[Rfam]
RNA sequence: UAUAUUCUUCAGGGCAGGGUGAAAUUCCCGACCGGCGGUAAAAGUCCGCGAACUGCGAAAGUGGUUGACUUGGUGAAAUUCCAAGACCGACAGUAAAGUCUGGAUGGGAGAAGAUGAUU
Numbered sequence: 001u002a003u004a005u006u007c008u009u010c011a012g013g014g015c016a017g018g019g020u021g022a023a024a025u026u027c028c029c030g031a032c033c034g035g036c037g038g039u040a041a042a043a044g045u046c047c048g049c050g051a052a053c054u055g056c057g058a059a060a061g062u063g064g065u066u067g068a069c070u071u072g073g074u075g076a077a078a079u080u081c082c083a084a085g086a087c088c089g090a091c092a093g094u095a096a097a098g099u100c101u102g103g104a105u106g107g108g109a110g111a112a113g114a115u116g117a118u119u
Stems, first nucleotide, its partner, number of pairs: 003117001006114005017029003031099002033089002035049004044087002052065003069085005091102003
RNA: FMN riboswitch aptamer (RFN element)